[Rfam]
Nucleotides: 077
Base pairs, nucleotide, nucleotide: 004026005025006024007023008022009021028040033038048069049068050067051066052065053064054063055062
Number, partner (000 for none) and nucleotide at each position: 001000u002000c003000c004026c005025c006024c007023g008022c009021u010000u011000u012000u013000c014000c015000u016000c017000c018000c019000u020000a021009a022008g023007c024006g025005g026004g027000g028040u029000g030000g031000u032000c033038a034000g035000a036000a037000a038033u039000g040028a041000c042000g043000u044000u045000a046000a047000g048069c049068c050067c051066c052065a053064a054063g055062u056000u057000u058000c059000a060000a061000u062055a063054c064053u065052u066051g067050g068049g069048g070000u071000u072000u073000u074000u075000u076000u077000u
This 77-nucleotide sequence from Ephemeroptericola cinctiostellae belongs to the Rfam family "Burkholderia RNA 7 (anti-hemB)".
Taxonomically the source falls in Ephemeroptericola (Bacteria, Pseudomonadota, Burkholderiales, Burkholderiaceae).
The literature on the family includes a 2007 paper in Nucleic Acids Res by Weinberg et al., "Identification of 22 candidate structured RNAs in bacteria using the CMfinder comparative genomics pipeline".
This RNA motif was identified by computational search in b-proteobacteria Burkholderia. Co-purified with Hfq, expression confirmed by Northern blot.